[Rfam]
RNA sequence: AAUGGACAAAGGCAAACUCAUCGAAAGGUGAGGACGCAAAGCUAUGGACCUAAAGCUCUGUCAAGCUAUGGUAGCCAAGUUACCGAA
Numbered sequence: 001a002a003u004g005g006a007c008a009a010a011g012g013c014a015a016a017c018u019c020a021u022c023g024a025a026a027g028g029u030g031a032g033g034a035c036g037c038a039a040a041g042c043u044a045u046g047g048a049c050c051u052a053a054a055g056c057u058c059u060g061u062c063a064a065g066c067u068a069u070g071g072u073a074g075c076c077a078a079g080u081u082a083c084c085g086a087a
Stems, first nucleotide, its partner, number of pairs: 012037002017032006040081004045077003048072003055066003
The family of this 87-nucleotide RNA from Paraliobacillus quinghaiensis is "c-di-GMP-I riboswitch aptamer". The family's consensus secondary structure is taken from published work. GEMM was predicted in a large-scale screen for bacterial structured RNA regulatory elements.